[Rfam]
RNA sequence: GCACGUGGCACGGGGUGUCCCCGACCGGGGACUGAGAGCACACCCGUCGAACCUGCUCCAGUUCACACUGGCGAAGGGAUGCCGGCAUGUCUUCCG
Numbered sequence: 001g002c003a004c005g006u007g008g009c010a011c012g013g014g015g016u017g018u019c020c021c022c023g024a025c026c027g028g029g030g031a032c033u034g035a036g037a038g039c040a041c042a043c044c045c046g047u048c049g050a051a052c053c054u055g056c057u058c059c060a061g062u063u064c065a066c067a068c069u070g071g072c073g074a075a076g077g078g079a080u081g082c083c084g085g086c087a088u089g090u091c092u093u094c095c096g
Stems, first nucleotide, its partner, number of pairs: 006084005011046004016040001017032005052077003058071004
RNA: TPP riboswitch aptamer (THI element)